RNA sequence: GCGGCACAAUCUGCAAUCUACGCCACUGGCUUACGUUGUGGUCGAGAAUCGUGUCCAGUGCCGUAUAUUGCAGUUGUGUGGACGCA
Numbered sequence: 001g002c003g004g005c006a007c008a009a010u011c012u013g014c015a016a017u018c019u020a021c022g023c024c025a026c027u028g029g030c031u032u033a034c035g036u037u038g039u040g041g042u043c044g045a046g047a048a049u050c051g052u053g054u055c056c057a058g059u060g061c062c063g064u065a066u067a068u069u070g071c072a073g074u075u076g077u078g079u080g081g082a083c084g085c086a
Base pairs, nucleotide, nucleotide: 001085002084003083004079005078006077007076008075009074011073012072013071014070015069016068017067019065020064021063022062024060025059026058027057028056029055032053033052034051035050
The record is an 86-nucleotide RNA sequence from Drosophila simulans, which matches "mir-978 microRNA precursor family" in Rfam. The family's consensus secondary structure was predicted with RNAalifold. Its family is annotated with miRNA-mediated post-transcriptional gene silencing and RISC complex in the Gene Ontology.